[Rfam]
RNA sequence: GUCUGAAAAAACUCAGAAAUUGUCAGUGUUCUCAUCAGCUUUGUCUCUUUAUCUAAUUAUGAGACUUCGAGUUAAACAAGAACACUACAUUU
Numbered sequence: 001g002u003c004u005g006a007a008a009a010a011a012c013u014c015a016g017a018a019a020u021u022g023u024c025a026g027u028g029u030u031c032u033c034a035u036c037a038g039c040u041u042u043g044u045c046u047c048u049u050u051a052u053c054u055a056a057u058u059a060u061g062a063g064a065c066u067u068c069g070a071g072u073u074a075a076a077c078a079a080g081a082a083c084a085c086u087a088c089a090u091u092u
Stems, first nucleotide, its partner, number of pairs: 025086007037073005044064004
RNA: Small nucleolar RNA snoR97